[Rfam]
RNA sequence: CGGUUAUGUCUCCUACCCGUUAUCAUUGGGGGCACUCGACCAUGCUGUGGGUGGAAAUAUUCUGCCUUAGACACAUUUGUUGUCAAAAGGAUGGUGUGAGGGCGGGUUAGAUGCCCG
Numbered sequence: 001c002g003g004u005u006a007u008g009u010c011u012c013c014u015a016c017c018c019g020u021u022a023u024c025a026u027u028g029g030g031g032g033c034a035c036u037c038g039a040c041c042a043u044g045c046u047g048u049g050g051g052u053g054g055a056a057a058u059a060u061u062c063u064g065c066c067u068u069a070g071a072c073a074c075a076u077u078u079g080u081u082g083u084c085a086a087a088a089g090g091a092u093g094g095u096g097u098g099a100g101g102g103c104g105g106g107u108u109a110g111a112u113g114c115c116c117g
Stems, first nucleotide, its partner, number of pairs: 001019003007034007035100004039095005045089002049067008070084004103117005